[Rfam]
Shown here is a 118-nucleotide sequence from Dermacoccus sp. 147Ba, a member of the family "ALIL pseudoknot".
It scores 61 bits against the family's covariance model.
It is annotated as a cis-regulatory element.
Taxonomically the source falls in Dermacoccus (Bacteria, Bacillati, Actinomycetota, Micrococcales).
Nucleotides: 118
Base pairs, nucleotide, nucleotide: 013029014028015027016026017025086116087115089113090112091111092110093109094108095107
Number, partner (000 for none) and nucleotide at each position: 001000g002000g003000c004000a005000u006000u007000u008000u009000u010000c011000a012000c013029g014028g015027c016026g017025g018000a019000g020000c021000u022000c023000g024000a025017c026016c027015g028014c029013c030000c031000c032000a033000c034000g035000a036000c037000g038000a039000g040000a041000u042000g043000a044000u045000c046000c047000g048000g049000u050000u051000c052000a053000u054000c055000g056000a057000c058000g059000a060000a061000c062000a063000c064000c065000g066000u067000g068000a069000u070000c071000a072000g073000u074000u075000c076000g077000g078000g079000g080000u081000c082000g083000a084000g085000c086116c087115a088000a089113u090112c091111u092110g093109u094108c095107g096000g097000a098000u099000c100000c101000u102000g103000g104000g105000c106000g107095c108094g109093a110092c111091g112090g113089g114000c115087u116086g117000u118000g